RNA: Nitrogen regulated small RNA
Organism: Pseudomonas sp. THAF187a
RNA sequence: AAUCCAGGUUUUGGGGGCCUUGGUACAGGCAGGCCGGGGAAUCCCCUUCUUUAUUCGACGCGGACGCCGCGUCACCGCAGUACGCCGCCGCUGAUCCACGGGCACGGCGUCACCCGUUUCGGGGACCUUGGUACAGGCAGGCCGGGGAAUCCCCUCUUUAUUCGACGCGAACGCCGCGUCAUGGCAGUACGCCGCCGCUCAUCCACGGGCACGGCGUUACCCGUUUCGGGGACCUUGGUACAGGCAGGCCGGGGAAUCCCCUUCUUUAUCUGGGACG
Numbered sequence: 001a002a003u004c005c006a007g008g009u010u011u012u013g014g015g016g017g018c019c020u021u022g023g024u025a026c027a028g029g030c031a032g033g034c035c036g037g038g039g040a041a042u043c044c045c046c047u048u049c050u051u052u053a054u055u056c057g058a059c060g061c062g063g064a065c066g067c068c069g070c071g072u073c074a075c076c077g078c079a080g081u082a083c084g085c086c087g088c089c090g091c092u093g094a095u096c097c098a099c100g101g102g103c104a105c106g107g108c109g110u111c112a113c114c115c116g117u118u119u120c121g122g123g124g125a126c127c128u129u130g131g132u133a134c135a136g137g138c139a140g141g142c143c144g145g146g147g148a149a150u151c152c153c154c155u156c157u158u159u160a161u162u163c164g165a166c167g168c169g170a171a172c173g174c175c176g177c178g179u180c181a182u183g184g185c186a187g188u189a190c191g192c193c194g195c196c197g198c199u200c201a202u203c204c205a206c207g208g209g210c211a212c213g214g215c216g217u218u219a220c221c222c223g224u225u226u227c228g229g230g231g232a233c234c235u236u237g238g239u240a241c242a243g244g245c246a247g248g249c250c251g252g253g254g255a256a257u258c259c260c261c262u263u264c265u266u267u268a269u270c271u272g273g274g275a276c277g
Base pairs, nucleotide, nucleotide: 013046014045015044016043017042018039019038020037021036022035023034024033059109060108061107063105121154122153123152124151125150127146128145129144130143131142132141164218165217166216167215168214228261229260230259231258232257234253235252236251237250238249239248